[Rfam]
RNA: Eukaryotic small subunit ribosomal RNA, nucleotides 22 to 621
Organism: Hermetia illucens
RNA sequence: AGUUAUAUGCUUGUCUCAAAGAUUAAGCCAUGCAUGUCUAAGUACACACGAAUUAAAAGUGAAACCGCAAAAGGCUCAUUAUAUCAGUUAUGGUUCCUUAGAUCAUUAACAGUUACUUGGAUAACUGUGGUAAUUCUAGAGCUAAUACAUGCAAUAUAAACACGGACCUUAUGGAACGUGUGCUUUUAUUAGGCUAAAACCAAGCGAUCUUUCGGGAUCGUUAUAUUGGUUGAACUCUGGAUAAUUUGCAGAUCGUAUGGUCUCGUACCGACGACAAAUCUUUCAAAUGUCUGCCCUAUCAACUAUUGAUGGUAGUAUCUUGGACUACCAUGGUUGCAACGGGUAACGGGGAAUCAGGGUUCGAUUCCGGAGAGGGAGCCUGAGAAACGGCUACCACAUCUAAGGAAGGCAGCAGGCGCGUAAAUUACCCACUCCCAGUACGGGGAGGUAGUGACGAAAAAUAACAAUACAGGACUCAUAUCCGAGGCCCUGUAAUUGGAAUGAGUACACUUUAAAUCCUUUAACGAGGACCUAUUGGAGGGCAAGUCUGGUGCCAGCCGCCGCGGUAAUUCCAGCUCCAAUAGCGUAUAUUAAAGUUGU
Numbered sequence: 001a002g003u004u005a006u007a008u009g010c011u012u013g014u015c016u017c018a019a020a021g022a023u024u025a026a027g028c029c030a031u032g033c034a035u036g037u038c039u040a041a042g043u044a045c046a047c048a049c050g051a052a053u054u055a056a057a058a059g060u061g062a063a064a065c066c067g068c069a070a071a072a073g074g075c076u077c078a079u080u081a082u083a084u085c086a087g088u089u090a091u092g093g094u095u096c097c098u099u100a101g102a103u104c105a106u107u108a109a110c111a112g113u114u115a116c117u118u119g120g121a122u123a124a125c126u127g128u129g130g131u132a133a134u135u136c137u138a139g140a141g142c143u144a145a146u147a148c149a150u151g152c153a154a155u156a157u158a159a160a161c162a163c164g165g166a167c168c169u170u171a172u173g174g175a176a177c178g179u180g181u182g183c184u185u186u187u188a189u190u191a192g193g194c195u196a197a198a199a200c201c202a203a204g205c206g207a208u209c210u211u212u213c214g215g216g217a218u219c220g221u222u223a224u225a226u227u228g229g230u231u232g233a234a235c236u237c238u239g240g241a242u243a244a245u246u247u248g249c250a251g252a253u254c255g256u257a258u259g260g261u262c263u264c265g266u267a268c269c270g271a272c273g274a275c276a277a278a279u280c281u282u283u284c285a286a287a288u289g290u291c292u293g294c295c296c297u298a299u300c301a302a303c304u305a306u307u308g309a310u311g312g313u314a315g316u317a318u319c320u321u322g323g324a325c326u327a328c329c330a331u332g333g334u335u336g337c338a339a340c341g342g343g344u345a346a347c348g349g350g351g352a353a354u355c356a357g358g359g360u361u362c363g364a365u366u367c368c369g370g371a372g373a374g375g376g377a378g379c380c381u382g383a384g385a386a387a388c389g390g391c392u393a394c395c396a397c398a399u400c401u402a403a404g405g406a407a408g409g410c411a412g413c414a415g416g417c418g419c420g421u422a423a424a425u426u427a428c429c430c431a432c433u434c435c436c437a438g439u440a441c442g443g444g445g446a447g448g449u450a451g452u453g454a455c456g457a458a459a460a461a462u463a464a465c466a467a468u469a470c471a472g473g474a475c476u477c478a479u480a481u482c483c484g485a486g487g488c489c490c491u492g493u494a495a496u497u498g499g500a501a502u503g504a505g506u507a508c509a510c511u512u513u514a515a516a517u518c519c520u521u522u523a524a525c526g527a528g529g530a531c532c533u534a535u536u537g538g539a540g541g542g543c544a545a546g547u548c549u550g551g552u553g554c555c556a557g558c559c560g561c562c563g564c565g566g567u568a569a570u571u572c573c574a575g576c577u578c579c580a581a582u583a584g585c586g587u588a589u590a591u592u593a594a595a596g597u598u599g600u
Stems, first nucleotide, its partner, number of pairs: 001592003005589007014459001016457002020452001021419001027417003031414003036068002042065002048060002075372003085293003090288002094286002100281004116151001118149002125141002128138003160181005167174002186244005200232001202230001208217003253274004258270004295343003302334003309331008347369004351362004374395002377392003397408001399406002425450001427449003433445004465498003468494006475486003505525002507522001509521001535581006548575004557564002